[Rfam]
RNA sequence: AUAAUUACAAAGCAUAUGCCGAAGACAGUAGGUACCGUAAGGUAUAAAUUAGUAAUGCCUACCGAGGAUGAUAAGAAUUCUAGAAAGAAUAUUAUUGAACCUCUCUGUCUUUUGACAGAGAGGUUUUUUCGGCAGAUA
Numbered sequence: 001a002u003a004a005u006u007a008c009a010a011a012g013c014a015u016a017u018g019c020c021g022a023a024g025a026c027a028g029u030a031g032g033u034a035c036c037g038u039a040a041g042g043u044a045u046a047a048a049u050u051a052g053u054a055a056u057g058c059c060u061a062c063c064g065a066g067g068a069u070g071a072u073a074a075g076a077a078u079u080c081u082a083g084a085a086a087g088a089a090u091a092u093u094a095u096u097g098a099a100c101c102u103c104u105c106u107g108u109c110u111u112u113u114g115a116c117a118g119a120g121a122g123g124u125u126u127u128u129u130c131g132g133c134a135g136a137u138a
Stems, first nucleotide, its partner, number of pairs: 028062006034043003100123010